[Rfam]
Nucleotides: 086
Base pairs, nucleotide, nucleotide: 001086003084004083007080008079009078010077011076013061014060015059023054024053025052027050028049029048039073040072042068043067044066045065
Number, partner (000 for none) and nucleotide at each position: 001086c002000c003084g004083u005000c006000g007080g008079c009078g010077g011076g012000a013061g014060g015059c016000u017000c018000g019000c020000a021000c022000a023054c024053g025052c026000a027050g028049u029048c030000c031000a032000u033000a034000c035000c036000c037000a038000c039073g040072g041000c042068c043067g044066c045065c046000g047000u048029g049028a050027c051000c052025g053024c054023g055000c056000c057000g058000a059015g060014c061013c062000a063000c064000u065045g066044g067043c068042g069000a070000g071000a072040c073039c074000g075000a076011c077010c078009c079008g080007c081000g082000u083004a084003u085000c086001g
Background
A member of the RNA family "c-di-GMP-II-GAG riboswitch aptamer", 86 nucleotides long.